[Rfam]
RNA sequence: CCGUGAACUUUGUAUCGCGCGCAUCGCUUAGAUGAACUCUAGAGAGUCACAUAGAAG
Numbered sequence: 001c002c003g004u005g006a007a008c009u010u011u012g013u014a015u016c017g018c019g020c021g022c023a024u025c026g027c028u029u030a031g032a033u034g035a036a037c038u039c040u041a042g043a044g045a046g047u048c049a050c051a052u053a054g055a056a057g
Stems, first nucleotide, its partner, number of pairs: 019037001022034004
RNA: Plastid-ndhJ 3UTR RNA
Organism: Corchorus capsularis